[Rfam]
RNA sequence: CCAAAAGUUUUCUAGGGUUCCGCGUAGUCGUACGGUCUGGUCCGAGAGAAAGCGCAUAGUUACUAUGUACACGGAGGGAGAAAAGCCCGGGAGGU
Numbered sequence: 001c002c003a004a005a006a007g008u009u010u011u012c013u014a015g016g017g018u019u020c021c022g023c024g025u026a027g028u029c030g031u032a033c034g035g036u037c038u039g040g041u042c043c044g045a046g047a048g049a050a051a052g053c054g055c056a057u058a059g060u061u062a063c064u065a066u067g068u069a070c071a072c073g074g075a076g077g078g079a080g081a082a083a084a085g086c087c088c089g090g091g092a093g094g095u
Stems, first nucleotide, its partner, number of pairs: 007053006015043002020040002022037001023034004054068006070090001072093001076088003

The family of this 95-nucleotide RNA sequence from Halalkalibacter okhensis is "Guanidine-I riboswitch aptamer". It scores 84 bits against the family's covariance model. Pairs were carried over by alignment from the consensus structure. Gene Ontology term of the family: regulation of gene expression. Taxonomically the source falls in Halalkalibacter (Bacteria, Bacillati, Bacillota, Bacillaceae).